[Rfam]
RNA sequence: CAAGCAAAACGUUCUAUCGUUCUUUGGAAACAAAGGGAGGAAAGUCCGGGCAACACAGAGCAUCCUGCUUCCUAACGGGAAGGCGCCUUGCAGCGGGCGACAGCCAGUGCCACAGAAAAUAUACCGCCCGGCUUUGCCGGGUAAGGGUGAAAAUGUGAGGUAAGAGCUCACAGCGAGUGCAGGUAACUGCAUUCGCGGUAAACCUCAGGAGUUGAAAAACCAAAUAGGUCCUGAACGUGAAGCUGCUCGCUUCCGUAUGCUGCCUUGGUGGCAUCGUCAGGAUGGGUAGGUUGAUAGAGCCGGUUAGUGAUAGCCGGUCGAGAUUAAUGAUAGAAGCCGCCGAAAGGCGGUACAGAACCCGGCUUACAGCUUUGCUGCUGUA
Numbered sequence: 001c002a003a004g005c006a007a008a009a010c011g012u013u014c015u016a017u018c019g020u021u022c023u024u025u026g027g028a029a030a031c032a033a034a035g036g037g038a039g040g041a042a043a044g045u046c047c048g049g050g051c052a053a054c055a056c057a058g059a060g061c062a063u064c065c066u067g068c069u070u071c072c073u074a075a076c077g078g079g080a081a082g083g084c085g086c087c088u089u090g091c092a093g094c095g096g097g098c099g100a101c102a103g104c105c106a107g108u109g110c111c112a113c114a115g116a117a118a119a120u121a122u123a124c125c126g127c128c129c130g131g132c133u134u135u136g137c138c139g140g141g142u143a144a145g146g147g148u149g150a151a152a153a154u155g156u157g158a159g160g161u162a163a164g165a166g167c168u169c170a171c172a173g174c175g176a177g178u179g180c181a182g183g184u185a186a187c188u189g190c191a192u193u194c195g196c197g198g199u200a201a202a203c204c205u206c207a208g209g210a211g212u213u214g215a216a217a218a219a220c221c222a223a224a225u226a227g228g229u230c231c232u233g234a235a236c237g238u239g240a241a242g243c244u245g246c247u248c249g250c251u252u253c254c255g256u257a258u259g260c261u262g263c264c265u266u267g268g269u270g271g272c273a274u275c276g277u278c279a280g281g282a283u284g285g286g287u288a289g290g291u292u293g294a295u296a297g298a299g300c301c302g303g304u305u306a307g308u309g310a311u312a313g314c315c316g317g318u319c320g321a322g323a324u325u326a327a328u329g330a331u332a333g334a335a336g337c338c339g340c341c342g343a344a345a346g347g348c349g350g351u352a353c354a355g356a357a358c359c360c361g362g363c364u365u366a367c368a369g370c371u372u373u374g375c376u377g378c379u380g381u382a
Stems, first nucleotide, its partner, number of pairs: 003376006010369001011367001012335007020037007042365003046362005051214004061259001063210005068082005083101001084099004102205002107203002109199003124146002126142007154172006175194008218292004228283006299318008
Rfam assigns this 382-nucleotide RNA sequence from Mucilaginibacter robiniae to the family "Bacterial RNase P class A". Rfam links the family to the GO terms tRNA processing, ribonuclease P activity and dimeric ribonuclease P complex. NCBI's taxonomy places the organism under Bacteria, Pseudomonadati, Sphingobacteriia, Sphingobacteriales, Mucilaginibacter.